A member of the RNA family "mir-454 microRNA precursor family" from Anabarilius grahami, 102 nucleotides long.
The match comes from Rfam's covariance-model search (87 bits).
The literature on the family includes a 2005 paper in Genes Dev by Chen et al., "The developmental miRNA profiles of zebrafish as determined by small RNA cloning".
Its family is annotated with miRNA-mediated post-transcriptional gene silencing and RISC complex in the Gene Ontology.
Rfam 15.1 lists 696 matches to the family in 601 species.
[Rfam]
RNA sequence: AUGUCUAAUGCUAAUUCUUGGGACCCUAUCAGUAUUGCCUCUGCUGUCCACUGUGUUCAGAGUAGUGCAAUAUUGCUAAUAGGGUUUCAGGUUUUAGAUCGU
Numbered sequence: 001a002u003g004u005c006u007a008a009u010g011c012u013a014a015u016u017c018u019u020g021g022g023a024c025c026c027u028a029u030c031a032g033u034a035u036u037g038c039c040u041c042u043g044c045u046g047u048c049c050a051c052u053g054u055g056u057u058c059a060g061a062g063u064a065g066u067g068c069a070a071u072a073u074u075g076c077u078a079a080u081a082g083g084g085u086u087u088c089a090g091g092u093u094u095u096a097g098a099u100c101g102u
Base pairs, nucleotide, nucleotide: 020088021087022086023085024084025083026082027081028080029079030075031074032073033072034071035070036069037068038067041065042064043063044062045061
Dot-bracket structure: ...................(((((((((((((((((((..(((((...............))))).)))))))))...))))))))))..............